Description: mir-286 microRNA precursor family: a 90-nucleotide sequence from Bactrocera dorsalis. The family has 15 seed sequences and 37 matches in Rfam 15.1. Gene Ontology terms of the family: miRNA-mediated post-transcriptional gene silencing and RISC complex. The literature on the family includes a 2009 paper in BMC Genomics by Li et al., "Direct sequencing and expression analysis of a large number of miRNAs in Aedes aegypti and a multispecies survey of novel mosquito miRNAs".
[Rfam]
RNA sequence: UUAAAAUUAAACAGCGAUUGUCGGCCUAGUCGCUUAUUAUAGUAUAAAAGUCUAGUGACUAGACCGAACACUCGUGCUAUAAUUUUAAAA
Numbered sequence: 001u002u003a004a005a006a007u008u009a010a011a012c013a014g015c016g017a018u019u020g021u022c023g024g025c026c027u028a029g030u031c032g033c034u035u036a037u038u039a040u041a042g043u044a045u046a047a048a049a050g051u052c053u054a055g056u057g058a059c060u061a062g063a064c065c066g067a068a069c070a071c072u073c074g075u076g077c078u079a080u081a082a083u084u085u086u087a088a089a090a
Stems, first nucleotide, its partner, number of pairs: 011080001013078004019070003022066003027061005033055002